M-box riboswitch aptamer (ykoK leader): a 174-nucleotide RNA sequence from Enterobacterales bacterium CwR94. For this family Rfam cites "New RNA motifs suggest an expanded scope for riboswitches in bacterial genetic control" (Barrick et al., Proc Natl Acad Sci U S A, 2004). Lineage of the source: Bacteria > Pseudomonadati > Pseudomonadota > Gammaproteobacteria > Enterobacterales. The match comes from Rfam's covariance-model search (116 bits).

[Rfam]
RNA sequence: GGCAGUUUUCGUUUGGCGAGGCUCCUGUACAAACACAGGUGACUGAUCUGACGACAUCGCGAGAUGCCCAAGGUUAGGACAGGUAUUAUCGACCGUAGGUAUUACCCAAAGUCACUUCUGCAUAAUCAGUGCAGAUACGUUGUACAGUGCUAAAACCGAGUUGAGAAAGCAUAU
Numbered sequence: 001g002g003c004a005g006u007u008u009u010c011g012u013u014u015g016g017c018g019a020g021g022c023u024c025c026u027g028u029a030c031a032a033a034c035a036c037a038g039g040u041g042a043c044u045g046a047u048c049u050g051a052c053g054a055c056a057u058c059g060c061g062a063g064a065u066g067c068c069c070a071a072g073g074u075u076a077g078g079a080c081a082g083g084u085a086u087u088a089u090c091g092a093c094c095g096u097a098g099g100u101a102u103u104a105c106c107c108a109a110a111g112u113c114a115c116u117u118c119u120g121c122a123u124a125a126u127c128a129g130u131g132c133a134g135a136u137a138c139g140u141u142g143u144a145c146a147g148u149g150c151u152a153a154a155a156c157c158g159a160g161u162u163g164a165g166a167a168a169g170c171a172u173a174u
Stems, first nucleotide, its partner, number of pairs: 005170006011162001013097001015157002020151003025147008039115005045075005055066004082106004088100003117135006